[Rfam]
RNA sequence: AAACUCUUAUAGUAAUAUAAGACUGAAUAAUGAGAAGUCAGCAGAUGCCAUAGUACUAUACAAUAGUAUAGGAAGGGC
Numbered sequence: 001a002a003a004c005u006c007u008u009a010u011a012g013u014a015a016u017a018u019a020a021g022a023c024u025g026a027a028u029a030a031u032g033a034g035a036a037g038u039c040a041g042c043a044g045a046u047g048c049c050a051u052a053g054u055a056c057u058a059u060a061c062a063a064u065a066g067u068a069u070a071g072g073a074a075g076g077g078c
Stems, first nucleotide, its partner, number of pairs: 002024001005022007037046003047078003056071006
This 78-nucleotide sequence from Haloplasma contractile belongs to the Rfam family "Group II catalytic intron D1-D4-1". Gene Ontology term of the family: Group II intron splicing. The base pairs follow the family's consensus structure. The source organism's lineage runs through Bacteria, Bacillati, Haloplasmatales, Haloplasmataceae and Haloplasma contractile.